[Rfam]
RNA: c-di-GMP-II-GAG riboswitch aptamer
RNA sequence: ACCGCAGCGGGAGGCUGUGACGCGCGGCCCACACCCCGGCCGCCGGGACCGCGCCGAGCCACUGGCGAGACCGACCCGUAUAUGG
Number, nucleotide and partner (000 for none) at each position: 001a000002c084003c000004g000005c000006a000007g079008c078009g077010g076011g075012a000013g060014g059015c058016u000017g000018u000019g000020a000021c000022g054023c053024g052025c051026g050027g049028c000029c047030c000031a000032c000033a000034c000035c000036c000037c000038g072039g071040c000041c067042g066043c065044c064045g000046g000047g029048a000049c027050c026051g025052c024053g023054c022055c000056g000057a000058g015059c014060c013061a000062c000063u000064g044065g043066c042067g041068a000069g000070a000071c039072c038073g000074a000075c011076c010077c009078g008079u007080a000081u000082a000083u000084g002085g000